Rfam assigns this 72-nucleotide RNA sequence from Bagarius yarrelli to the family "mir-148/mir-152 microRNA precursor family". It scores 54 bits against the family's covariance model. Rfam links the family to the GO terms RISC complex and miRNA-mediated post-transcriptional gene silencing. NCBI's taxonomy places the organism under Eukaryota, Metazoa, Bilateria, Siluriformes, Bagarius.
RNA sequence: CUCAGGCAAAGUUCUGUGAUCCACUCGGGCCGUGUGAGCGUGUGGUCAGUGCAUUACAGAGCUUGCUUUGAG
Numbered sequence: 001c002u003c004a005g006g007c008a009a010a011g012u013u014c015u016g017u018g019a020u021c022c023a024c025u026c027g028g029g030c031c032g033u034g035u036g037a038g039c040g041u042g043u044g045g046u047c048a049g050u051g052c053a054u055u056a057c058a059g060a061g062c063u064u065g066c067u068u069u070g071a072g
Base pairs, nucleotide, nucleotide: 004068005067006066007065009064010063011062012061013060014059015058016057022051023050024049025048028047029046030045031044